Background
The family of this 99-nucleotide RNA sequence from Ceratopteris richardii is "Small nucleolar RNA snR60/Z15/Z230/Z193/J17". The base pairs follow the family's consensus structure. A reference for the family is Lowe and Eddy (1999), "A computational screen for methylation guide snoRNAs in yeast", Science.
RNA sequence: ACUCAGGAGAUGAUGAUACAAAGUGCAUAGUUCAUAUGAAGUCUACAUAGAUCUUUGACUGUAUUGCAUAUUGUCUUUCACUCCUAUCUGAUCCUAGCU
Numbered sequence: 001a002c003u004c005a006g007g008a009g010a011u012g013a014u015g016a017u018a019c020a021a022a023g024u025g026c027a028u029a030g031u032u033c034a035u036a037u038g039a040a041g042u043c044u045a046c047a048u049a050g051a052u053c054u055u056u057g058a059c060u061g062u063a064u065u066g067c068a069u070a071u072u073g074u075c076u077u078u079c080a081c082u083c084c085u086a087u088c089u090g091a092u093c094c095u096a097g098c099u
Stems, first nucleotide, its partner, number of pairs: 005095004
Description: It is annotated as a C/D-box small nucleolar RNA. Its Rfam clan is "SNORD77 clan". The match comes from Rfam's covariance-model search (58 bits). The source organism's lineage runs through Eukaryota, Embryophyta, Euphyllophyta, Pteridineae and Ceratopteris.